[Rfam]
RNA sequence: CCCUCCGAAGUUUCCCUCAGGAUAGCUGGAGCUUGUGCAGUUUUAUCGGGUAAAGCGAAUGAUUAGGGGUUUAGGGGGCGAAAUGCCUUCUGCCCAUUCUCAAACUUUAAAUAGGUAAGGGUUGGGUUACUUAAUUGAACCCCGCCGUGUAAUGAGAGCUCUAUGUGGGCCAUUUUUGGUAAGCAGAACUGGCGAUGCGGGAUGAACCGAAAGCCGGGUUAAAGUGCCAAACUGCGCGCUAACCUAGAUCCCACAAAGGGUGUUGAUUCAUACAGACAGCAGGACGGUGGUCAUGGAAGUCGAAAUCCGCUAAGGAGUGUGUAACAACUCACCUGCCGAAUGAAUUAGCCCCGAAAAUGGAUGGCGCUUAAGCGCGCGACUUAUACCCGGCCAUCAGUGCGAUUGCGAGGCUCUGAUGAGUAGGAGGGCGUGGAGGCCGUGACGCAGCUUGGGGCGUAAGCCCGAGUGAAACGACCUCUAGUGCAGAU
Dot-bracket structure: ((((((....(.(((....))).)..(((((((.........(((((.....(((....(((..(.(((..((((((.(.....).))))))))).)..)))..)).).....))))).(((.(((((.........))))).)))..........))))))).....((((.(((((.....))))).))))....(((......)))...(((((.(...(((......(.(..(((..................(((.((((((((((.......(((((.(((...((.........))...)))(...)(...((......)).).)))))...)))))))))))))...................)))..)))))...).)))))((((((.((.........)).))))))....))))))(.((((((.(((......((....(((....)))...))...))).))))))..).....
The family of this 488-nucleotide part of an RNA from Ostreococcus sp. 'lucimarinus' is "Eukaryotic large subunit ribosomal RNA".
The sequence is in the family's curated seed alignment.
NCBI's taxonomy places the organism under Eukaryota, Chlorophyta, Mamiellophyceae, Bathycoccaceae, Ostreococcus sp. 'lucimarinus'.
The base pairs follow the family's consensus structure, which is taken from published work.